[Rfam]
The record is a 71-nucleotide RNA from Hydra vulgaris, which matches "Small nucleolar RNA SNORD2" in Rfam. The family's consensus secondary structure was predicted with WAR. A reference for the family is Zhou et al. (2004), "Identification of a novel box C/D snoRNA from mouse nucleolar cDNA library", Gene.
RNA sequence: UACUGAAAUGAUGUUUUAUCACAUGUUAGACUACUGAUAUGAAAUGUUGACAUUUUUAUUACUGAUCAGUA
Numbered sequence: 001u002a003c004u005g006a007a008a009u010g011a012u013g014u015u016u017u018a019u020c021a022c023a024u025g026u027u028a029g030a031c032u033a034c035u036g037a038u039a040u041g042a043a044a045u046g047u048u049g050a051c052a053u054u055u056u057u058a059u060u061a062c063u064g065a066u067c068a069g070u071a
Base pairs, nucleotide, nucleotide: 001071002070003069004068005067006066